Annotation: The family of this 64-nucleotide RNA from Peromyscus maniculatus is "Small nucleolar RNA SNORD75". The match comes from Rfam's covariance-model search (53 bits).

RNA sequence: GGCUCAUAAAUGAUGAUGUGAGAGUAGUGGACAGAAGGGAUCUCCAAAAAACUAUUCUGAGGCU
Numbered sequence: 001g002g003c004u005c006a007u008a009a010a011u012g013a014u015g016a017u018g019u020g021a022g023a024g025u026a027g028u029g030g031a032c033a034g035a036a037g038g039g040a041u042c043u044c045c046a047a048a049a050a051a052c053u054a055u056u057c058u059g060a061g062g063c064u
Stems, first nucleotide, its partner, number of pairs: 001064004